[Rfam]
RNA: tRNA
Organism: Gelatoporia subvermispora
RNA sequence: GGCUACCUGGCGCAAUGGUAGCGCGUUUGGCUUCGAUUGCUAAGCGGCACCAAAAGGUUGCAGGUUCGAGUCCUGCGGUGGUCA
Numbered sequence: 001g002g003c004u005a006c007c008u009g010g011c012g013c014a015a016u017g018g019u020a021g022c023g024c025g026u027u028u029g030g031c032u033u034c035g036a037u038u039g040c041u042a043a044g045c046g047g048c049a050c051c052a053a054a055a056g057g058u059u060g061c062a063g064g065u066u067c068g069a070g071u072c073c074u075g076c077g078g079u080g081g082u083c084a
Base pairs, nucleotide, nucleotide: 001083002082003081004080005079006078007077010024011023012022013021026054027053028052029051030050060076061075062074063073064072